[Rfam]
RNA sequence: CGUUCCGGCGGCACGAAACGUCUCUUUUCCCAACAAACAACCCGGUGAAAGAACCCCCGCCAAACCAAACCCCAGCCCCUCACCCGCCCGGGUGAACAUCGCCAACUCGGCUGGCUUUUGCCCUGGUUGCCUGCCCUACUCUCGGCGCAAUACAACCGCACAUACAACGGCCCUCGCAGGGACUGGCAUCCCGAUGCGAGGGCCUGACCACCGAGGAACCAACACUUCCUG
Dot-bracket structure: ......((.(.........(.((..................................................)).)..((((((....))))))..............(((((...........................)))))......................(((((.(((.((((......))))...))).)))))....).))..((((.......))))..